[Rfam]
RNA: mir-399 microRNA precursor family
Organism: Miscanthus lutarioriparius
RNA sequence: UCGAGGAUUACCGGGCCAUUUCUCCUUGGGCAGAGUGAUUGAAUUUUACUCUGCUGGAUCUGGUUUGCUCUGCCAAAGGAGAUUUGCCCAGCAAUCCACAU
Numbered sequence: 001u002c003g004a005g006g007a008u009u010a011c012c013g014g015g016c017c018a019u020u021u022c023u024c025c026u027u028g029g030g031c032a033g034a035g036u037g038a039u040u041g042a043a044u045u046u047u048a049c050u051c052u053g054c055u056g057g058a059u060c061u062g063g064u065u066u067g068c069u070c071u072g073c074c075a076a077a078g079g080a081g082a083u084u085u086g087c088c089c090a091g092c093a094a095u096c097c098a099c100a101u
Base pairs, nucleotide, nucleotide: 005097006096007095008094009093011091013089014088015087016086018084022081023080024079025078029074030073031072032071033070034069035068036067037066038065